[Rfam]
RNA sequence: AGAAAGUGUGCCUAGGGUUCCACACCGCUAAGUGGCGGUGGUUCGGUCCAAGCGGUACAGGCAGCACCGGGUGAUUACCAUGUGCGGCUACACCGGUCGGGAUAAAAGCCCAGGCGGG
Numbered sequence: 001a002g003a004a005a006g007u008g009u010g011c012c013u014a015g016g017g018u019u020c021c022a023c024a025c026c027g028c029u030a031a032g033u034g035g036c037g038g039u040g041g042u043u044c045g046g047u048c049c050a051a052g053c054g055g056u057a058c059a060g061g062c063a064g065c066a067c068c069g070g071g072u073g074a075u076u077a078c079c080a081u082g083u084g085c086g087g088c089u090a091c092a093c094c095g096g097u098c099g100g101g102a103u104a105a106a107a108g109c110c111c112a113g114g115c116g117g118g
Stems, first nucleotide, its partner, number of pairs: 007059006015049002020046002022043001023040006060089003064085004091113001093116001099111003
Dot-bracket structure: ......((((((..((...(((((((((......))))))..).)).))....))))))(((.((((..............)))).))).(.[.....(((.......))).)..]..
RNA: Guanidine-I riboswitch aptamer